[Rfam]
RNA sequence: CUAUCAACAUCGUGAGGUGUUGAGAUGGGGAGGCAGAAGUCAGCAGAGGCCAUAGUAGGUUUGUUACCGCAAGCUGAAGGGU
Number, nucleotide and partner (000 for none) at each position: 001c027002u000003a000004u023005c022006a021007a020008c019009a018010u017011c016012g000013u000014g000015a000016g011017g010018u009019g008020u007021u006022g005023a004024g000025a000026u000027g001028g000029g000030g000031a000032g000033g000034c000035a000036g000037a000038a000039g000040u047041c046042a000043g000044c000045a000046g041047a040048g000049g082050c081051c080052a000053u000054a000055g000056u000057a000058g075059g074060u073061u072062u071063g070064u000065u000066a000067c000068c000069g000070c063071a062072a061073g060074c059075u058076g000077a000078a000079g000080g051081g050082u049
RNA: Group II catalytic intron D1-D4-1